[Rfam]
RNA sequence: GGGUUACUCCUUUGCGCUUGCGCGCUCAAUUUGAUAAAGAUUCGCACCUCUAUCAAACCGGGUAACCCCGCCCUUUGGCAAGGCCUACUGUCAGAUUAAAUCGGAACUACUACAUAUAAGGAGCGCGAUUACGAUCUUUCAGCCAUGCUGAGCAAGACUCCCGACAAUGGUGGUUUUACCUACACCGCCCUUUUGACCCGCCA
Numbered sequence: 001g002g003g004u005u006a007c008u009c010c011u012u013u014g015c016g017c018u019u020g021c022g023c024g025c026u027c028a029a030u031u032u033g034a035u036a037a038a039g040a041u042u043c044g045c046a047c048c049u050c051u052a053u054c055a056a057a058c059c060g061g062g063u064a065a066c067c068c069c070g071c072c073c074u075u076u077g078g079c080a081a082g083g084c085c086u087a088c089u090g091u092c093a094g095a096u097u098a099a100a101u102c103g104g105a106a107c108u109a110c111u112a113c114a115u116a117u118a119a120g121g122a123g124c125g126c127g128a129u130u131a132c133g134a135u136c137u138u139u140c141a142g143c144c145a146u147g148c149u150g151a152g153c154a155a156g157a158c159u160c161c162c163g164a165c166a167a168u169g170g171u172g173g174u175u176u177u178a179c180c181u182a183c184a185c186c187g188c189c190c191u192u193u194u195g196a197c198c199c200g201c202c203a
Base pairs, nucleotide, nucleotide: 001068002067003066004065005064006063007062009061010060014025015024016023017022030057031056032055033054034053035052036051038049039048070201071200076145077144078143086141090107091106092104094102095101096100109138110133114130163194164193169189170188171187172186173185175182
This 203-nucleotide RNA sequence from Nitrosospira lacus belongs to the Rfam family "Proteobacterial sRNA psRNA2". NCBI's taxonomy places the organism under Bacteria, Pseudomonadati, Pseudomonadota, Betaproteobacteria, Nitrosospira. A reference for the family is Gvakharia et al. (2010), "Computational prediction and transcriptional analysis of sRNAs in Nitrosomonas europaea", FEMS Microbiol Lett.